Source information:
Small nucleolar RNA U2-30: a 73-nucleotide RNA sequence from Camelus dromedarius. NCBI's taxonomy places the organism under Eukaryota, Amniota, Eutheria, Boreoeutheria, Camelus. Pairs were carried over by alignment from the consensus structure, which is taken from published work. It is annotated as a C/D-box small nucleolar RNA.
RNA sequence: GAGCAAUGAUGAAAAGGGUUUACCACUGACCUUCAUAACUAUGAAGCUUUCUUCUGCACUCGAUCUGAGCUCA
Numbered sequence: 001g002a003g004c005a006a007u008g009a010u011g012a013a014a015a016g017g018g019u020u021u022a023c024c025a026c027u028g029a030c031c032u033u034c035a036u037a038a039c040u041a042u043g044a045a046g047c048u049u050u051c052u053u054c055u056g057c058a059c060u061c062g063a064u065c066u067g068a069g070c071u072c073a
Stems, first nucleotide, its partner, number of pairs: 001072004014033004019028001